This 51-nucleotide sequence belongs to the Rfam family "algC RNA".

[Rfam]
RNA sequence: CAAAAUUUCUCCGUUCCGGAGAGGGCUGAGUGUUGCCUGAAAACGAGGUAA
Numbered sequence: 001c002a003a004a005a006u007u008u009c010u011c012c013g014u015u016c017c018g019g020a021g022a023g024g025g026c027u028g029a030g031u032g033u034u035g036c037c038u039g040a041a042a043a044c045g046a047g048g049u050a051a
Base pairs, nucleotide, nucleotide: 009021010020011019012018013017
It is annotated as a cis-regulatory element.